[Rfam]
RNA: c-di-GMP-I riboswitch aptamer
RNA sequence: CCCACGAAAAGGCAAACGCCGCGAAAGCGGCGGGCGCAAAGCCACGGGCCUACAGGCUGCCACCCUUCCCCCCGGGGUGGCGCCCAUGGCAGCCGGGCUGCCGAA
Numbered sequence: 001c002c003c004a005c006g007a008a009a010a011g012g013c014a015a016a017c018g019c020c021g022c023g024a025a026a027g028c029g030g031c032g033g034g035c036g037c038a039a040a041g042c043c044a045c046g047g048g049c050c051u052a053c054a055g056g057c058u059g060c061c062a063c064c065c066u067u068c069c070c071c072c073c074g075g076g077g078u079g080g081c082g083c084c085c086a087u088g089g090c091a092g093c094c095g096g097g098c099u100g101c102c103g104a105a
Base pairs, nucleotide, nucleotide: 012037013036017032018031019030020029021028022027040099041098042097043096045095046094047093048090049089050088055084056083057082
Dot-bracket structure: ...........((...((((((....))))))...))..((((.((((((....(((........................)))...)))..)))))))......